RNA sequence: UUAGUAAAUUAGUGGACUAGGGUCCAGAAUCAAAUAACCCCGCUUGUACGGGGUUUUUUGUGUUUUAAAUUUCGAUUUUCUUUCUGGGCAUUUGGCCCUUUUUUC
Numbered sequence: 001u002u003a004g005u006a007a008a009u010u011a012g013u014g015g016a017c018u019a020g021g022g023u024c025c026a027g028a029a030u031c032a033a034a035u036a037a038c039c040c041c042g043c044u045u046g047u048a049c050g051g052g053g054u055u056u057u058u059u060g061u062g063u064u065u066u067a068a069a070u071u072u073c074g075a076u077u078u079u080c081u082u083u084c085u086g087g088g089c090a091u092u093u094g095g096c097c098c099u100u101u102u103u104u105c
Stems, first nucleotide, its partner, number of pairs: 034057001036055007086098004
Gammaprotebacteria rimP leader: a 105-nucleotide RNA sequence from Paraglaciecola psychrophila. It scores 68 bits against the family's covariance model. NCBI's taxonomy places the organism under Bacteria, Pseudomonadati, Gammaproteobacteria, Paraglaciecola, Paraglaciecola psychrophila. Gene Ontology term of the family: regulation of gene expression. The family's RNA type in Rfam is cis-regulatory leader.